This 94-nucleotide RNA sequence from Sorghum bicolor belongs to the Rfam family "MIR5387 microRNA precursor family". Rfam links the family to the GO terms RISC complex and miRNA-mediated post-transcriptional gene silencing. The source organism's lineage runs through Eukaryota, Petrosaviidae, Panicoideae, Andropogoneae and Sorghum.
[Rfam]
RNA sequence: UGGUAACAAGACCCGGUGCUAAAGGGUCCCUACCCCGACAGCACUUGUCAGUAGCCGUUGGGCAGGCCCCUUUAGCACCGACUCGUGUUACAAA
Numbered sequence: 001u002g003g004u005a006a007c008a009a010g011a012c013c014c015g016g017u018g019c020u021a022a023a024g025g026g027u028c029c030c031u032a033c034c035c036c037g038a039c040a041g042c043a044c045u046u047g048u049c050a051g052u053a054g055c056c057g058u059u060g061g062g063c064a065g066g067c068c069c070c071u072u073u074a075g076c077a078c079c080g081a082c083u084c085g086u087g088u089u090a091c092a093a094a
Stems, first nucleotide, its partner, number of pairs: 003091006010084002014080013029066002034062003038058002045051002